[Rfam]
RNA sequence: AACCCACUUGUGUUAUUAUACACAUGUAUCGGCACAUGCGCCGGGGUGCUCUGACCACAAGGUCGGGGUCGGCCGUAUGGGAUACGUGGAGUCAUAAC
Numbered sequence: 001a002a003c004c005c006a007c008u009u010g011u012g013u014u015a016u017u018a019u020a021c022a023c024a025u026g027u028a029u030c031g032g033c034a035c036a037u038g039c040g041c042c043g044g045g046g047u048g049c050u051c052u053g054a055c056c057a058c059a060a061g062g063u064c065g066g067g068g069u070c071g072g073c074c075g076u077a078u079g080g081g082a083u084a085c086g087u088g089g090a091g092u093c094a095u096a097a098c
Base pairs, nucleotide, nucleotide: 023088024087025086026085027084028083029082030081035079036078037077038076039075040073041072042071043070048069049068050067051066052065
Rfam assigns this 98-nucleotide RNA sequence from Sodalis-like symbiont of Bactericera trigonica to the family "t44 RNA". A reference for the family is Tjaden et al. (2002), "Transcriptome analysis of Escherichia coli using high-density oligonucleotide probe arrays", Nucleic Acids Res. Rfam describes the family as follows. This family consists of a number of bacterial RNA genes of between 135 and 170 bases in length. The t44 gene has been identified in several species of enteric bacteria but homologs have also been identified in Pseudomonas and Coxiella species. The t44 gene is found between the map and rpsB genes in all species in the full alignment apart from Shigella flexneri. The function of this RNA is unknown. The match comes from Rfam's covariance-model search (68 bits). Lineage of the source: Bacteria > Pseudomonadota > Enterobacterales > Bruguierivoracaceae > Sodalis.